[Rfam]
Nucleotides: 077
Base pairs, nucleotide, nucleotide: 001018002017003016004015006014007013008012027055028054029053030052031051
Number, partner (000 for none) and nucleotide at each position: 001018g002017g003016c004015c005000a006014c007013c008012u009000u010000c011000g012008g013007g014006g015004g016003g017002c018001u019000u020000a021000c022000a023000c024000a025000u026000a027055g028054g029053c030052g031051g032000a033000u034000u035000u036000c037000c038000u039000g040000a041000a042000c043000c044000a045000c046000a047000g048000g049000c050000c051031c052030c053029g054028c055027c056000g057000u058000u059000a060000g061000c062000a063000a064000a065000c066000g067000g068000a069000a070000g071000a072000c073000a074000g075000a076000a077000a
Notes: Shown here is a 77-nucleotide RNA sequence from Roseovarius gahaiensis, a member of the family "L2-Alphaproteobacteria ribosomal protein leader". The family's RNA type in Rfam is cis-regulatory leader.